This 127-nucleotide RNA sequence from Spinacia oleracea belongs to the Rfam family "Nematode snoRNA ceN105". The family has 3 seed sequences and 12 matches in Rfam 15.1. A reference for the family is Jia et al. (2007), "Systematic identification of non-coding RNA 2,2,7-trimethylguanosine cap structures in Caenorhabditis elegans", BMC Mol Biol. The family's RNA type in Rfam is H/ACA-box small nucleolar RNA. Pairs were carried over by alignment from the consensus structure, which was predicted with RNAalifold. The organism belongs to Spinacia, within Eukaryota.
RNA sequence: GUUCGUCGUUAACAAUUAACGACGGAUUACUUUUUCGUCGUUAACAAAUAACGACGAAAUCAUAAUUCGUCGUUAAUUAUUGACGACGAAACAAUAAUCCGUCGUUAAUUGUUAACGACGAACUGAU
Numbered sequence: 001g002u003u004c005g006u007c008g009u010u011a012a013c014a015a016u017u018a019a020c021g022a023c024g025g026a027u028u029a030c031u032u033u034u035u036c037g038u039c040g041u042u043a044a045c046a047a048a049u050a051a052c053g054a055c056g057a058a059a060u061c062a063u064a065a066u067u068c069g070u071c072g073u074u075a076a077u078u079a080u081u082g083a084c085g086a087c088g089a090a091a092c093a094a095u096a097a098u099c100c101g102u103c104g105u106u107a108a109u110u111g112u113u114a115a116c117g118a119c120g121a122a123c124u125g126a127u
Stems, first nucleotide, its partner, number of pairs: 004056005010051001016044011029033001066122009075110004081104005

It scores 57 bits against the family's covariance model.